[Rfam]
RNA: MIR530 microRNA precursor family
Organism: Arachis hypogaea
RNA sequence: GCCAAUAUGUCGCCUUUAUCUGCAUUUGCACCUGCACUUUACUUGGUUUUCUCAAGAAGGGAGGAACUGAGAAGAGGUGCAGGUACAUCUGCAGGUGAAUGCCAUGUUGGC
Numbered sequence: 001g002c003c004a005a006u007a008u009g010u011c012g013c014c015u016u017u018a019u020c021u022g023c024a025u026u027u028g029c030a031c032c033u034g035c036a037c038u039u040u041a042c043u044u045g046g047u048u049u050u051c052u053c054a055a056g057a058a059g060g061g062a063g064g065a066a067c068u069g070a071g072a073a074g075a076g077g078u079g080c081a082g083g084u085a086c087a088u089c090u091g092c093a094g095g096u097g098a099a100u101g102c103c104a105u106g107u108u109g110g111c
Stems, first nucleotide, its partner, number of pairs: 001111009012102002015099010027087002030084010